RNA: Alpha operon ribosome binding site
Organism: Lacimicrobium alkaliphilum
RNA sequence: CAAUUUUGUCGUCGGAUAAGUAUCCUAGCGGGCUUUUUAGGCUGAUGACAUAUUAACUAGAGGAGUGCUGUUAGUGGCCCGUAUCGCUGGCAUUAACAUCCCUGAA
Numbered sequence: 001c002a003a004u005u006u007u008g009u010c011g012u013c014g015g016a017u018a019a020g021u022a023u024c025c026u027a028g029c030g031g032g033c034u035u036u037u038u039a040g041g042c043u044g045a046u047g048a049c050a051u052a053u054u055a056a057c058u059a060g061a062g063g064a065g066u067g068c069u070g071u072u073a074g075u076g077g078c079c080c081g082u083a084u085c086g087c088u089g090g091c092a093u094u095a096a097c098a099u100c101c102c103u104g105a106a
Stems, first nucleotide, its partner, number of pairs: 005052001007050007024090002029081004037105003